Shown here is a 76-nucleotide sequence from Cnephaeus nilssonii, a member of the family "mir-9229 microRNA precursor family". A search with the family's covariance model found it, with a score of 78 bits.
[Rfam]
RNA sequence: GAGACACUCUUAUGGAGCAGGAAUUGCUUCAGUGGGAAUUUGGUGCUCACUGAAUCUGCCCCUUGUGUGUGUCACU
Numbered sequence: 001g002a003g004a005c006a007c008u009c010u011u012a013u014g015g016a017g018c019a020g021g022a023a024u025u026g027c028u029u030c031a032g033u034g035g036g037a038a039u040u041u042g043g044u045g046c047u048c049a050c051u052g053a054a055u056c057u058g059c060c061c062c063u064u065g066u067g068u069g070u071g072u073c074a075c076u
Base pairs, nucleotide, nucleotide: 001075003073004072005071006070007069009067011065012064014062015061017059018058019057021056022055029053030052031051032050033049034048035047036046037044
Rfam links the family to the GO terms RISC complex and miRNA-mediated post-transcriptional gene silencing. Rfam 15.1 lists 27,225 matches to the family in 9 species.